The record is a 98-nucleotide sequence from Caenorhabditis brenneri, which matches "mir-72 microRNA precursor family" in Rfam. Rfam 15.1 lists 75 matches to the family in 67 species. Rfam links the family to the GO terms miRNA-mediated post-transcriptional gene silencing and RISC complex. Pairs were carried over by alignment from the consensus structure, which was predicted with RNAalifold.
RNA sequence: GCUAGGCAAGAUGUUGGCAUAGCUGAAUGAAAUUCUCGAUUAUCUCCUUUUUUCGACAAAAGGGAGAGUCACUCAGCUUCGCCACAUAUUGCCACGCG
Numbered sequence: 001g002c003u004a005g006g007c008a009a010g011a012u013g014u015u016g017g018c019a020u021a022g023c024u025g026a027a028u029g030a031a032a033u034u035c036u037c038g039a040u041u042a043u044c045u046c047c048u049u050u051u052u053u054c055g056a057c058a059a060a061a062g063g064g065a066g067a068g069u070c071a072c073u074c075a076g077c078u079u080c081g082c083c084a085c086a087u088a089u090u091g092c093c094a095c096g097c098g
Stems, first nucleotide, its partner, number of pairs: 005093003011087004016083003022077005